[Rfam]
RNA sequence: CUGCAGGAUAAGUUACAAUGCAGCUGGUUCAGUGCUGCUUUGUCGUUCCCCCUGCACACAGAAACGUGUUUCCUACUAUCCCUGUCUGUCUGCACUCCAUGGAAGGCGGGGACGCUUGGUCUCAAACAC
Numbered sequence: 001c002u003g004c005a006g007g008a009u010a011a012g013u014u015a016c017a018a019u020g021c022a023g024c025u026g027g028u029u030c031a032g033u034g035c036u037g038c039u040u041u042g043u044c045g046u047u048c049c050c051c052c053u054g055c056a057c058a059c060a061g062a063a064a065c066g067u068g069u070u071u072c073c074u075a076c077u078a079u080c081c082c083u084g085u086c087u088g089u090c091u092g093c094a095c096u097c098c099a100u101g102g103a104a105g106g107c108g109g110g111g112a113c114g115c116u117u118g119g120u121c122u123c124a125a126a127c128a129c
Base pairs, nucleotide, nucleotide: 003055004054005053006052007051015043016042017041018040020038021037022036023035024034081110082109083108084107086105087104089102